[Rfam]
Shown here is a 58-nucleotide RNA from Ricinus communis, a member of the family "Plastid-psbA-3 3UTR RNA". A reference for the family is Richter et al. (2023), "Retrograde signaling in plants: A critical review focusing on the GUN pathway and beyond", Plant Commun. The family's consensus secondary structure was predicted with LocARNA. Rfam describes the family as follows. Plastid psbA-3 is a non-coding RNA (ncRNA) present in plastids. It was identified in inverted repeat sequences in the 3 prime untranslate region (3UTR) of photosystem II quinone-binding protein (psbA). The match comes from Rfam's covariance-model search (50 bits).
RNA sequence: AAAGAAGCAAUACCAACCCUCUCGAUAGAAUAAGAAAUUGGCUAUUGCUCCUUUUUUU
Numbered sequence: 001a002a003a004g005a006a007g008c009a010a011u012a013c014c015a016a017c018c019c020u021c022u023c024g025a026u027a028g029a030a031u032a033a034g035a036a037a038u039u040g041g042c043u044a045u046u047g048c049u050c051c052u053u054u055u056u057u058u
Stems, first nucleotide, its partner, number of pairs: 001054004006049007013041002020035003024031001